[Rfam]
RNA sequence: GGUCAUGCUAUUCCACAGCUUUCUUGAACUUUCCUGCACUGCAUAUCCUGUGUAGAUCAAUUUUCUUUUUUACACUAUAGCUCUGUGGAAGCUCAAGAAAGCUGUGGGAGACCAUGGCAG
Numbered sequence: 001g002g003u004c005a006u007g008c009u010a011u012u013c014c015a016c017a018g019c020u021u022u023c024u025u026g027a028a029c030u031u032u033c034c035u036g037c038a039c040u041g042c043a044u045a046u047c048c049u050g051u052g053u054a055g056a057u058c059a060a061u062u063u064u065c066u067u068u069u070u071u072a073c074a075c076u077a078u079a080g081c082u083c084u085g086u087g088g089a090a091g092c093u094c095a096a097g098a099a100a101g102c103u104g105u106g107g108g109a110g111a112c113c114a115u116g117g118c119a120g
Base pairs, nucleotide, nucleotide: 003117004116005115006114007113013107014106015105017103018102019101020100021099022098024096025095026094027093029091030090031089032088033087